[Rfam]
RNA sequence: UUCUUAUCGAGAGAGGUUGAGGGACCGGCCCGAAGACGCCUCAGCAACCAUCAAUGCCUUUAAGCAUUGAAAAGGUGCUAAAUCCUGCAAGUUUUUUAUGGACUUGAAAGAUGAGAA
Numbered sequence: 001u002u003c004u005u006a007u008c009g010a011g012a013g014a015g016g017u018u019g020a021g022g023g024a025c026c027g028g029c030c031c032g033a034a035g036a037c038g039c040c041u042c043a044g045c046a047a048c049c050a051u052c053a054a055u056g057c058c059u060u061u062a063a064g065c066a067u068u069g070a071a072a073a074g075g076u077g078c079u080a081a082a083u084c085c086u087g088c089a090a091g092u093u094u095u096u097u098a099u100g101g102a103c104u105u106g107a108a109a110g111a112u113g114a115g116a117a
Base pairs, nucleotide, nucleotide: 001117002116003115004114005113006112007111008110013042014041015040016039017038021031022030023029025087027085028084043079044078045077046076048075049074051070052069053068054067055066056065083109088106089105090104091103092102093101
Dot-bracket structure: ((((((((....(((((...(((.[.[[)))......)))))((((.((.((((((........))))))...))))))...(]].]((((((.......))))))..)))))))))

A member of the RNA family "SAM riboswitch aptamer (S box leader)" from Bacillus sp. V3-13, 117 nucleotides long.
The source organism's lineage runs through Bacteria, Bacilli, Caryophanales, Bacillaceae and Bacillus.